[Rfam]
RNA sequence: UCCGAAAGUCCGAGUCGGACCUCCGCUGGUUUUUUUCCGCGGUGAUAUUCCAAAAAAAGGUUAUCACCGGGUAAAAACUGGUAGAGGUCCGAUCCAGUCAG
Number, nucleotide and partner (000 for none) at each position: 001u000002c000003c000004g000005a000006a000007a000008g000009u000010c000011c000012g000013a000014g000015u000016c091017g090018g089019a088020c087021c086022u085023c000024c000025g082026c081027u080028g079029g078030u077031u076032u075033u074034u000035u073036u000037c071038c070039g000040c069041g000042g067043u066044g065045a064046u063047a062048u000049u000050c000051c000052a000053a000054a000055a000056a000057a000058a000059g000060g000061u000062u047063a046064u045065c044066a043067c042068c000069g040070g038071g037072u000073a035074a033075a032076a031077a030078c029079u028080g027081g026082u025083a000084g000085a022086g021087g020088u019089c018090c017091g016092a000093u000094c000095c000096a000097g000098u000099c000100a000101g000

The family of this 101-nucleotide sequence from Caenorhabditis briggsae is "mir-36 microRNA precursor family". The literature on the family includes a 2004 paper in RNA by Ohler et al., "Patterns of flanking sequence conservation and a characteristic upstream motif for microRNA gene identification". Lineage of the source: Eukaryota > Nematoda > Rhabditina > Peloderinae > Caenorhabditis. The family has 46 seed sequences and 199 matches in Rfam 15.1.